Rfam assigns this 86-nucleotide RNA from Alcaligenaceae bacterium 429 to the family "SAH (S-adenosyl-L-homocysteine) riboswitch aptamer".
Gene Ontology terms of the family: S-adenosylhomocysteine metabolic process and regulation of gene expression.
The organism belongs to Alcaligenaceae, within Bacteria.
The match comes from Rfam's covariance-model search (65 bits).
RNA sequence: CUGUCUGAGGAGCGUUGCGACAAACCCCGUGCGGUUUGCCAGGCUCAGACAGUAGCGUUGAUCCCCUUCAACGACGCUCACCAGAU
Numbered sequence: 001c002u003g004u005c006u007g008a009g010g011a012g013c014g015u016u017g018c019g020a021c022a023a024a025c026c027c028c029g030u031g032c033g034g035u036u037u038g039c040c041a042g043g044c045u046c047a048g049a050c051a052g053u054a055g056c057g058u059u060g061a062u063c064c065c066c067u068u069c070a071a072c073g074a075c076g077c078u079c080a081c082c083a084g085a086u
Stems, first nucleotide, its partner, number of pairs: 002051007021038006